[Rfam]
RNA: Y RNA
Organism: Chlorocebus sabaeus
RNA sequence: GGCUGGUCCAAUGGUAAUGAGUUAUCAGAAUUUAACAUAGUGUCACUAAAGUUGGUGUAUGACUCCCCACUGCUAAAUUUGACUGGCUUCAA
Numbered sequence: 001g002g003c004u005g006g007u008c009c010a011a012u013g014g015u016a017a018u019g020a021g022u023u024a025u026c027a028g029a030a031u032u033u034a035a036c037a038u039a040g041u042g043u044c045a046c047u048a049a050a051g052u053u054g055g056u057g058u059a060u061g062a063c064u065c066c067c068c069a070c071u072g073c074u075a076a077a078u079u080u081g082a083c084u085g086g087c088u089u090c091a092a
Stems, first nucleotide, its partner, number of pairs: 001088008010080002015075001016071001018069002021066001026057002029053002